[Rfam]
RNA sequence: CAAUUUUUAAUAAUGUGUUUUUUUUUUAAAUGUCUGAACGGGUGAACUCUAUUGUGAUUUCAGUGCAUUACUGAGAUAAAUU
Numbered sequence: 001c002a003a004u005u006u007u008u009a010a011u012a013a014u015g016u017g018u019u020u021u022u023u024u025u026u027u028a029a030a031u032g033u034c035u036g037a038a039c040g041g042g043u044g045a046a047c048u049c050u051a052u053u054g055u056g057a058u059u060u061c062a063g064u065g066c067a068u069u070a071c072u073g074a075g076a077u078a079a080a081u082u
Base pairs, nucleotide, nucleotide: 002081004079005078007076008075